[Rfam]
The record is a 70-nucleotide RNA from Tenacibaculum todarodis, which matches "Flavo-1 RNA" in Rfam.
The family has 201 seed sequences and 7,497 matches in Rfam 15.1.
RNA sequence: GUUUAGCCCAGAUUGAAGUGGCAUCCUUUUGCUUUUUCAGCAAAAGAUAUAACGGAAAGCUGGAAUUAGC
Numbered sequence: 001g002u003u004u005a006g007c008c009c010a011g012a013u014u015g016a017a018g019u020g021g022c023a024u025c026c027u028u029u030u031g032c033u034u035u036u037u038c039a040g041c042a043a044a045a046g047a048u049a050u051a052a053c054g055g056a057a058a059g060c061u062g063g064a065a066u067u068a069g070c
Base pairs, nucleotide, nucleotide: 009062010061011060013058014057018053019052023048024047025046029043030042031041032040033039